[Rfam]
RNA: t44 RNA
Organism: Alteromonadales bacterium alter-6D02
RNA sequence: UUUACAUUUAUCUUAAAUCACACACAUAUCAUCAACUGUGUUCGGGGUGCCAAAGUACAUUUAUUUGUAUCGCGGUUCGAAUGACAGGGUAUGUGGAGGCCUAAC
Numbered sequence: 001u002u003u004a005c006a007u008u009u010a011u012c013u014u015a016a017a018u019c020a021c022a023c024a025c026a027u028a029u030c031a032u033c034a035a036c037u038g039u040g041u042u043c044g045g046g047g048u049g050c051c052a053a054a055g056u057a058c059a060u061u062u063a064u065u066u067g068u069a070u071c072g073c074g075g076u077u078c079g080a081a082u083g084a085c086a087g088g089g090u091a092u093g094u095g096g097a098g099g100c101c102u103a104a105c
Stems, first nucleotide, its partner, number of pairs: 023095008036087004041081004049076003